[Rfam]
RNA: Purine riboswitch aptamer
RNA sequence: AUAUUAAGUAAUUUUUUUGCUUAUAUAAUCGCUAUGAUAUGGUUAGCAAGUUUCUACCCGAUCCCGUAAAACAUCGGACUAUAAGCUUAAAAUGCUCGGAA
Numbered sequence: 001a002u003a004u005u006a007a008g009u010a011a012u013u014u015u016u017u018u019g020c021u022u023a024u025a026u027a028a029u030c031g032c033u034a035u036g037a038u039a040u041g042g043u044u045a046g047c048a049a050g051u052u053u054c055u056a057c058c059c060g061a062u063c064c065c066g067u068a069a070a071a072c073a074u075c076g077g078a079c080u081a082u083a084a085g086c087u088u089a090a091a092a093u094g095c096u097c098g099g100a101a
Base pairs, nucleotide, nucleotide: 019086020085021084022083023082024081025080029049031047032046033045034044058077059076060075061074062073